[Rfam]
RNA sequence: UAACAUUUCUUUACCUCCUGCACACCCCUCAAACCGAGACCUCUAGGGUGUAUAAAACACGUCUCUCAUACCAACUCUGGAGGGUAGAGUUGGAAUAUUUUACCUA
Dot-bracket structure: .............(.(((((...............[[[[[...))))).)..........]]]]].....(((((((.........))))))).............
Numbered sequence: 001u002a003a004c005a006u007u008u009c010u011u012u013a014c015c016u017c018c019u020g021c022a023c024a025c026c027c028c029u030c031a032a033a034c035c036g037a038g039a040c041c042u043c044u045a046g047g048g049u050g051u052a053u054a055a056a057a058c059a060c061g062u063c064u065c066u067c068a069u070a071c072c073a074a075c076u077c078u079g080g081a082g083g084g085u086a087g088a089g090u091u092g093g094a095a096u097a098u099u100u101u102a103c104c105u106a
Stems, first nucleotide, its partner, number of pairs: 014050001016048005036065005071093007